[Rfam]
RNA sequence: CUGCGGGCUGCGUCAACCGGGCCUGGUGGUACGGUGAACAGGAUGUCUUUUUCCCGGUUUCUCAUCCUGGCCAACGAAACGGCAGACGAGCAUCUGUCCCACCCGGCCC
Number, nucleotide and partner (000 for none) at each position: 001c000002u000003g000004c000005g000006g108007g107008c106009u105010g000011c000012g022013u021014c020015a000016a000017c000018c000019g000020g014021g013022c012023c000024u000025g103026g102027u101028g099029g098030u000031a000032c000033g094034g093035u092036g091037a000038a000039c069040a068041g067042g066043a065044u064045g063046u000047c000048u000049u000050u000051u000052u000053c000054c000055c000056g000057g000058u000059u000060u000061c000062u000063c045064a044065u043066c042067c041068u040069g039070g083071c082072c081073a000074a000075c000076g000077a000078a000079a000080c000081g072082g071083c070084a000085g000086a000087c000088g000089a000090g000091c036092a035093u034094c033095u000096g000097u000098c029099c028100c000101a027102c026103c025104c000105g009106g008107c007108c006109c000
The family of this 109-nucleotide RNA from Mesorhizobium ciceri is "Rhizobiales sRNA Atu_At1".
For this family Rfam cites "Deep sequencing uncovers numerous small RNAs on all four replicons of the plant pathogen Agrobacterium tumefaciens" (Wilms et al., RNA Biol, 2012).
The organism belongs to Mesorhizobium ciceri biovar biserrulae, within Bacteria.